The record is a 59-nucleotide sequence from Microterricola viridarii, which matches "msiK RNA" in Rfam. Lineage of the source: Bacteria > Bacillati > Actinomycetota > Microbacteriaceae > Microterricola. It scores 63 bits against the family's covariance model. By type it is a cis-regulatory element.
RNA sequence: UGGCACCAUCCAUCACAACGGAUCGUCCGGCACGUACCUGCCGGUGAAGGAGACAGUAA
Numbered sequence: 001u002g003g004c005a006c007c008a009u010c011c012a013u014c015a016c017a018a019c020g021g022a023u024c025g026u027c028c029g030g031c032a033c034g035u036a037c038c039u040g041c042c043g044g045u046g047a048a049g050g051a052g053a054c055a056g057u058a059a
Stems, first nucleotide, its partner, number of pairs: 009051003013047003027044006